[Rfam]
RNA sequence: AUUAAACAAUCGAGCGACAUUCGUAUAUUCUCAGUAAUAUGGUCUGAGAGUUUCUAGUAGGAACCGUUAAUUUCUAACUAUGAAUGGAUAGAUUUCGUCU
Numbered sequence: 001a002u003u004a005a006a007c008a009a010u011c012g013a014g015c016g017a018c019a020u021u022c023g024u025a026u027a028u029u030c031u032c033a034g035u036a037a038u039a040u041g042g043u044c045u046g047a048g049a050g051u052u053u054c055u056a057g058u059a060g061g062a063a064c065c066g067u068u069a070a071u072u073u074c075u076a077a078c079u080a081u082g083a084a085u086g087g088a089u090a091g092a093u094u095u096c097g098u099c100u
Stems, first nucleotide, its partner, number of pairs: 018086008029049006058076006
RNA: Purine riboswitch aptamer